RNA sequence: ACACGGGAAGGGAGGUGGUCCAGGCUUUGUGUAGCAAUAGGACUCGUGAGGUGGCUGUCCGCUAGCCGCUGUCCUUGACACAGCACGUCGUCGAGACCGUGUGGCAGCGGUGCGGCGAAUUCAAGUCAGCCACCCGACCCCCGGGGUGCCGGCCCAGUCCAGCCGGCCCGUGCGCGUGCGCGCUCGGAAGCCCCGGGGGUCGCUGUCU
Numbered sequence: 001a002c003a004c005g006g007g008a009a010g011g012g013a014g015g016u017g018g019u020c021c022a023g024g025c026u027u028u029g030u031g032u033a034g035c036a037a038u039a040g041g042a043c044u045c046g047u048g049a050g051g052u053g054g055c056u057g058u059c060c061g062c063u064a065g066c067c068g069c070u071g072u073c074c075u076u077g078a079c080a081c082a083g084c085a086c087g088u089c090g091u092c093g094a095g096a097c098c099g100u101g102u103g104g105c106a107g108c109g110g111u112g113c114g115g116c117g118a119a120u121u122c123a124a125g126u127c128a129g130c131c132a133c134c135c136g137a138c139c140c141c142c143g144g145g146g147u148g149c150c151g152g153c154c155c156a157g158u159c160c161a162g163c164c165g166g167c168c169c170g171u172g173c174g175c176g177u178g179c180g181c182g183c184u185c186g187g188a189a190g191c192c193c194c195g196g197g198g199g200u201c202g203c204u205g206u207c208u
Base pairs, nucleotide, nucleotide: 014059015058016057017056018055019054060117061116062115063114065113066112068108069107070106071105073103135202136201137200138199139198140197141196142195143194144193145192146191147190148167149166150165151164152163153162
A member of the RNA family "Actinobacteria sRNA Ms_IGR-5" from Phytohabitans suffuscus, 208 nucleotides long. It is annotated as a small RNA.